[Rfam]
RNA sequence: GUUUGUUCGUCUACCCUGUAGAUAGAGCUGUGUGUUUGGAAUAUACCGUACACAAGCUAGACUACAAGGUGAACGACUUAUGAG
Numbered sequence: 001g002u003u004u005g006u007u008c009g010u011c012u013a014c015c016c017u018g019u020a021g022a023u024a025g026a027g028c029u030g031u032g033u034g035u036u037u038g039g040a041a042u043a044u045a046c047c048g049u050a051c052a053c054a055a056g057c058u059a060g061a062c063u064a065c066a067a068g069g070u071g072a073a074c075g076a077c078u079u080a081u082g083a084g
Stems, first nucleotide, its partner, number of pairs: 012071004018065004023061001026058004031054005038047002
The record is an 84-nucleotide RNA sequence from Caenorhabditis brenneri, which matches "mir-57 microRNA precursor family" in Rfam. Gene Ontology terms of the family: miRNA-mediated post-transcriptional gene silencing and RISC complex. A search with the family's covariance model found it, with a score of 92 bits.